[Rfam]
RNA sequence: UGCAGCCCCGUCAAAUUCGGUCCCUGCCCACUCCGUGGCAAGAACCGGCCAAACGGCUGCCACAGCAACUUUGGUGGUCCACGAGUCCCGUGUCCCCUUCCCAUGGGACACGGGGGUAAAAUCACACCACAGACCUGU
Numbered sequence: 001u002g003c004a005g006c007c008c009c010g011u012c013a014a015a016u017u018c019g020g021u022c023c024c025u026g027c028c029c030a031c032u033c034c035g036u037g038g039c040a041a042g043a044a045c046c047g048g049c050c051a052a053a054c055g056g057c058u059g060c061c062a063c064a065g066c067a068a069c070u071u072u073g074g075u076g077g078u079c080c081a082c083g084a085g086u087c088c089c090g091u092g093u094c095c096c097c098u099u100c101c102c103a104u105g106g107g108a109c110a111c112g113g114g115g116g117u118a119a120a121a122u123c124a125c126a127c128c129a130c131a132g133a134c135c136u137g138u
Stems, first nucleotide, its partner, number of pairs: 002060004018047004023042001025040004074130005086115005
Shown here is a 138-nucleotide RNA sequence from Glaucidium brasilianum, a member of the family "Small nucleolar RNA SNORA5". The family has 6 seed sequences and 2,226 matches in Rfam 15.1. The organism belongs to Glaucidium, within Eukaryota. Rfam links the family to the GO terms nucleolus and RNA processing. ACA5 is a member of the H/ACA class of snoRNA that guide the sites of modification of uridines to pseudouridines.